[Rfam]
RNA sequence: UUCUCCGAAAUAUAUUUAGGUAUAGCCUCGUGAGGUCACUGACGGAGGUAGAGCACUGCUUGGGCUAGGGGUCCCACCGGAUUACCAACCCCAUGCAAACUCCGAAUGCCGUCAAGUUGUAUCACGGGAGUCAGACUGUGGGAGAUAAGUUCCAUGGUCGAGAGGGAAACAACCCAGACCGCCAGCUAAGGUCCCUAAAUCUGCACUAAGUGGGAAAGGAGGUGAAAUUGCUCAGACAACCAGGAGGUUGGCUUAGAAGCAGCAAUCCUUUAAAGAAAGCGUAAUAGCUCACUGGUCUAGUGAAUUCGCGCCGAAAAUGUAACGGGGCUAAAGUGCAGUACCGAAGCUGCGGGUCGUAUCUUUGAUACGGCGGUAGGAGAACAUUGUGUAGGCCUGAGAAGGUGCAUCGUGAGGUGUGCUGGAGGUAUCACAAGAGCUUAU
Numbered sequence: 001u002u003c004u005c006c007g008a009a010a011u012a013u014a015u016u017u018a019g020g021u022a023u024a025g026c027c028u029c030g031u032g033a034g035g036u037c038a039c040u041g042a043c044g045g046a047g048g049u050a051g052a053g054c055a056c057u058g059c060u061u062g063g064g065c066u067a068g069g070g071g072u073c074c075c076a077c078c079g080g081a082u083u084a085c086c087a088a089c090c091c092c093a094u095g096c097a098a099a100c101u102c103c104g105a106a107u108g109c110c111g112u113c114a115a116g117u118u119g120u121a122u123c124a125c126g127g128g129a130g131u132c133a134g135a136c137u138g139u140g141g142g143a144g145a146u147a148a149g150u151u152c153c154a155u156g157g158u159c160g161a162g163a164g165g166g167a168a169a170c171a172a173c174c175c176a177g178a179c180c181g182c183c184a185g186c187u188a189a190g191g192u193c194c195c196u197a198a199a200u201c202u203g204c205a206c207u208a209a210g211u212g213g214g215a216a217a218g219g220a221g222g223u224g225a226a227a228u229u230g231c232u233c234a235g236a237c238a239a240c241c242a243g244g245a246g247g248u249u250g251g252c253u254u255a256g257a258a259g260c261a262g263c264a265a266u267c268c269u270u271u272a273a274a275g276a277a278a279g280c281g282u283a284a285u286a287g288c289u290c291a292c293u294g295g296u297c298u299a300g301u302g303a304a305u306u307c308g309c310g311c312c313g314a315a316a317a318u319g320u321a322a323c324g325g326g327g328c329u330a331a332a333g334u335g336c337a338g339u340a341c342c343g344a345a346g347c348u349g350c351g352g353g354u355c356g357u358a359u360c361u362u363u364g365a366u367a368c369g370g371c372g373g374u375a376g377g378a379g380a381a382c383a384u385u386g387u388g389u390a391g392g393c394c395u396g397a398g399a400a401g402g403u404g405c406a407u408c409g410u411g412a413g414g415u416g417u418g419c420u421g422g423a424g425g426u427a428u429c430a431c432a433a434g435a436g437c438u439u440a441u
Stems, first nucleotide, its partner, number of pairs: 001381006011024005026130001027128007036121001038117002040114006051103001052101002057097003061093004068086002070083005134159010164175003179352004184348003190342003199339001201338006218312002222309005228303004239296005245269003251263002270274001275290001279288002353371008382436001384433005392426003401420008

The record is a 441-nucleotide part of an RNA from Desulfolithobacter dissulfuricans, which matches "Bacterial large subunit ribosomal RNA" in Rfam. A search with the family's covariance model found it, with a score of 2988 bits. The base pairs follow the family's consensus structure, which is taken from published work. The organism belongs to Desulfolithobacter, within Bacteria.